[Rfam]
RNA sequence: UUCAAACUGUUGGGGUGCCCUUUCCCGGGCUGAGAUGCACACGCUGCGAACCCAUUGAACCUGAACCGGUUAGGACCGGCGGAGGGAACAGCUUGUGGACCUCG
Numbered sequence: 001u002u003c004a005a006a007c008u009g010u011u012g013g014g015g016u017g018c019c020c021u022u023u024c025c026c027g028g029g030c031u032g033a034g035a036u037g038c039a040c041a042c043g044c045u046g047c048g049a050a051c052c053c054a055u056u057g058a059a060c061c062u063g064a065a066c067c068g069g070u071u072a073g074g075a076c077c078g079g080c081g082g083a084g085g086g087a088a089c090a091g092c093u094u095g096u097g098g099a100c101c102u103c104g
Base pairs, nucleotide, nucleotide: 007091008090009089010088011054012053013052014051016048017030018029019028020027037047038046039045060085061084062083066079067078068077069076
The record is a 104-nucleotide sequence from Pseudosulfitobacter pseudonitzschiae, which matches "TPP riboswitch aptamer (THI element)" in Rfam. Rfam describes the family as follows. Vitamin B(1) in its active form thiamin pyrophosphate (TPP) is an essential coenzyme that is synthesised by coupling of pyrimidine and thiazole moieties in bacteria. The previously detected thiamin-regulatory element, thi box was extended, resulting in a new, highly conserved RNA secondary structure, the THI element, which is widely distributed in eubacteria and also occurs in some archaea. Analysis of operon structures identified a large number of new candidate thiamin-regulated genes, mostly transporters, in various prokaryotic organisms. The THI element is a riboswitch that directly binds to TPP to regulate gene expression through a variety of mechanisms in archaea, bacteria and eukaryotes. through a variety of mechanisms in archaea, bacteria and eukaryotes. Tandem TPP riboswitches have been reported where both TPP riboswitches respond independently to TPP. The structure of TPP riboswitch has been reported for Escherichia coli and Arabidopsis thaliana. Rfam links the family to the GO term thiamine pyrophosphate binding.